Record summary:
The family of this 116-nucleotide sequence from Castanea mollissima is "Small nucleolar RNA Z278". Gene Ontology terms of the family: nucleolus and RNA processing. The source organism's lineage runs through Eukaryota, Magnoliopsida, eudicotyledons, Gunneridae and Castanea. The match comes from Rfam's covariance-model search (44 bits). snoZ278 is a C/D box small nucleolar RNA. Its methylation guide targets have not been reported. It is annotated as a C/D-box small nucleolar RNA.

RNA sequence: UUCGAUGAUGAUUUUAACAUGUUUUUGAGGUUAGUUUGCUUCAAGCCCCUGCUUACAGGGAGAACCUACUUGAGGCUGCUAUACCAUAGUAUGAAAUUUCUGGAUUAUUCUGAGAC
Dot-bracket structure: .((...........................................(((((....))))).....................................................)).